[Rfam]
Rfam assigns this 148-nucleotide sequence from Stackebrandtia endophytica to the family "c-di-AMP riboswitch aptamer (ydaO/yuaA leader)". Lineage of the source: Bacteria > Bacillati > Actinomycetota > Glycomycetaceae > Stackebrandtia. It scores 81 bits against the family's covariance model.
RNA sequence: GGCGUCCCUCCGCCGAGUCGUCACCGAGAUGAACCGGGGACCCAAUGCCACGCAUGCGUGGCCGGGGUGAAUCCGCGCAGUGGCGCGGUAGGGCACUCUCGCCGCCCGAACCCGACAGCUAACCCGGUAGGCGGACGAGACGAGAGAC
Numbered sequence: 001g002g003c004g005u006c007c008c009u010c011c012g013c014c015g016a017g018u019c020g021u022c023a024c025c026g027a028g029a030u031g032a033a034c035c036g037g038g039g040a041c042c043c044a045a046u047g048c049c050a051c052g053c054a055u056g057c058g059u060g061g062c063c064g065g066g067g068u069g070a071a072u073c074c075g076c077g078c079a080g081u082g083g084c085g086c087g088g089u090a091g092g093g094c095a096c097u098c099u100c101g102c103c104g105c106c107c108g109a110a111c112c113c114g115a116c117a118g119c120u121a122a123c124c125c126g127g128u129a130g131g132c133g134g135a136c137g138a139g140a141c142g143a144g145a146g147a148c
Stems, first nucleotide, its partner, number of pairs: 011133004018032005033128006043064001065113003073088004091107004